[Rfam]
RNA sequence: AUACUCAAUCAGGGGAGCCAUUUUUGGCUGAGAGGUUUGAAAACAAACGACCCUUUGAACUUGAUCCAGCUAAUACUGGCGAAAGGAGAUCGCAUGAAAUCAGA
Numbered sequence: 001a002u003a004c005u006c007a008a009u010c011a012g013g014g015g016a017g018c019c020a021u022u023u024u025u026g027g028c029u030g031a032g033a034g035g036u037u038u039g040a041a042a043a044c045a046a047a048c049g050a051c052c053c054u055u056u057g058a059a060c061u062u063g064a065u066c067c068a069g070c071u072a073a074u075a076c077u078g079g080c081g082a083a084a085g086g087a088g089a090u091c092g093c094a095u096g097a098a099a100u101c102a103g104a
Base pairs, nucleotide, nucleotide: 006092008090009089010088011054012053013052014051017028018027019026020025035048036047037046038045039044060085061084062083066079067078068077069076
This 104-nucleotide RNA sequence from Bacteriovorax sp. Seq25_V belongs to the Rfam family "TPP riboswitch aptamer (THI element)".
Its family is annotated with thiamine pyrophosphate binding in the Gene Ontology.
Taxonomically the source falls in Bacteriovorax (Bacteria, Pseudomonadati, Bacteriovoracia, Bacteriovoracaceae).